Rfam assigns this 72-nucleotide sequence from Paramicrobacterium agarici to the family "tRNA". By type it is a transfer RNA. Taxonomically the source falls in Paramicrobacterium (Bacteria, Actinomycetota, Actinomycetes, Microbacteriaceae). It scores 60 bits against the family's covariance model. Rfam describes the family as follows. Transfer RNA (tRNA) molecules are approximately 80 nucleotides in length.
RNA sequence: UCCGCCUUGGUGUAAUGGCAGCACGACAGCCUUUGGAGCUGUGAAGUCUAGGUUCGAGUCCUGGAGGCGGAG
Numbered sequence: 001u002c003c004g005c006c007u008u009g010g011u012g013u014a015a016u017g018g019c020a021g022c023a024c025g026a027c028a029g030c031c032u033u034u035g036g037a038g039c040u041g042u043g044a045a046g047u048c049u050a051g052g053u054u055c056g057a058g059u060c061c062u063g064g065a066g067g068c069g070g071a072g
Base pairs, nucleotide, nucleotide: 001071002070003069004068005067006066007065010024011023012022013021026042027041028040029039030038048064049063050062051061052060